[Rfam]
RNA sequence: UGCUUUGAGUUAGCAGCCUGACUAUAAUAGGCUGAUGGCUGGUGAUUUAAUAGUCACCAGCCU
Numbered sequence: 001u002g003c004u005u006u007g008a009g010u011u012a013g014c015a016g017c018c019u020g021a022c023u024a025u026a027a028u029a030g031g032c033u034g035a036u037g038g039c040u041g042g043u044g045a046u047u048u049a050a051u052a053g054u055c056a057c058c059a060g061c062c063u
Stems, first nucleotide, its partner, number of pairs: 014034005037062010
Background
The family of this 63-nucleotide sequence from Moellerella wisconsensis is "Pseudomonas sRNA P26". Rfam's curators write: This small RNA (sRNA) was computationally identified in the genome of the opportunistic pathogen Pseudomonas aeruginosa and its expression verified by northern blot analysis. P26 is conserved across many Gammaproteobacteria species and appears to be consistently located between the DNA directed RNA polymerase (beta subunit) and 50S ribosomal protein L7/L12 genes. Rfam classes the family as a non-coding RNA gene. The source organism's lineage runs through Bacteria, Pseudomonadati, Pseudomonadota, Morganellaceae and Moellerella wisconsensis.